[Rfam]
A member of the RNA family "int-alpA RNA" from Thiothrix eikelboomii, 67 nucleotides long. About the family: Acidobacteria (1 example), Planctomycetes (1 example), Proteobacteria. Taxonomically the source falls in Thiothrix (Bacteria, Pseudomonadati, Gammaproteobacteria, Thiotrichaceae). Rfam classes the family as a small RNA. The family's consensus secondary structure is taken from published work. The family has 167 seed sequences and 577 matches in Rfam 15.1.
RNA sequence: GGCACGCCUAGCCCGACGGGGCGAACCCCGGACACCUUUCACCGGAUGGCGUGCAGAUUCUGAAAGG
Numbered sequence: 001g002g003c004a005c006g007c008c009u010a011g012c013c014c015g016a017c018g019g020g021g022c023g024a025a026c027c028c029c030g031g032a033c034a035c036c037u038u039u040c041a042c043c044g045g046a047u048g049g050c051g052u053g054c055a056g057a058u059u060c061u062g063a064a065a066g067g
Stems, first nucleotide, its partner, number of pairs: 002054007011022004028045004035067006
Dot-bracket structure: .(((((((..((((....)))).....((((...[[[[[[.))))..))))))).......]]]]]]